[Rfam]
RNA sequence: GGUCAGUGAUGAGAUGUAAAAGGUCCGAAGCCUUGCCUCCUUCCAGUCCUGUUGUCCCUCGCAGCAGCCCCUGUUAAUUUCUUUCCCCAGCAUGCUCUAGUUGUGCAUCGCUGGUUAAGGGUGGCGGCUGAUAUUACGGACGUUUCCGCUGCAUUUAGAGUCUUUUUUCGAGAAUAAUAAGACGUCGACAGCGGCGUCCAACAGAAGCACGACACACAGGAGGGCCGGACUGAAGGAGAGCGUUUGACAGGCUUAUGAUCUCAAGUUUUCAAGCUGAGACC
Numbered sequence: 001g002g003u004c005a006g007u008g009a010u011g012a013g014a015u016g017u018a019a020a021a022g023g024u025c026c027g028a029a030g031c032c033u034u035g036c037c038u039c040c041u042u043c044c045a046g047u048c049c050u051g052u053u054g055u056c057c058c059u060c061g062c063a064g065c066a067g068c069c070c071c072u073g074u075u076a077a078u079u080u081c082u083u084u085c086c087c088c089a090g091c092a093u094g095c096u097c098u099a100g101u102u103g104u105g106c107a108u109c110g111c112u113g114g115u116u117a118a119g120g121g122u123g124g125c126g127g128c129u130g131a132u133a134u135u136a137c138g139g140a141c142g143u144u145u146c147c148g149c150u151g152c153a154u155u156u157a158g159a160g161u162c163u164u165u166u167u168u169c170g171a172g173a174a175u176a177a178u179a180a181g182a183c184g185u186c187g188a189c190a191g192c193g194g195c196g197u198c199c200a201a202c203a204g205a206a207g208c209a210c211g212a213c214a215c216a217c218a219g220g221a222g223g224g225c226c227g228g229a230c231u232g233a234a235g236g237a238g239a240g241c242g243u244u245u246g247a248c249a250g251g252c253u254u255a256u257g258a259u260c261u262c263a264a265g266u267u268u269u270c271a272a273g274c275u276g277a278g279a280c281c
Stems, first nucleotide, its partner, number of pairs: 001281004035259001037257001040236003044232004058222003062130004067125002087114005095105001138199007158185001160183005166177002
RNA: Small Cajal body specific RNA 6